Record summary
The family of this 82-nucleotide part of an RNA from Caedimonas varicaedens is "Bacterial small subunit ribosomal RNA".
RNA sequence: CACCCGUGACGAUAAUGACGGUAGCGGGAGAAGAAGCCCCGGCUAACUCCGUGCCAGCAGCCGCGGUAAGACGGAGGGGGCU
Numbered sequence: 001c002a003c004c005c006g007u008g009a010c011g012a013u014a015a016u017g018a019c020g021g022u023a024g025c026g027g028g029a030g031a032a033g034a035a036g037c038c039c040c041g042g043c044u045a046a047c048u049c050c051g052u053g054c055c056a057g058c059a060g061c062c063g064c065g066g067u068a069a070g071a072c073g074g075a076g077g078g079g080g081c082u
Base pairs, nucleotide, nucleotide: 001033003028004027005026006025007024011019036081037080038079039078040077047076048075049074050073051072057064058063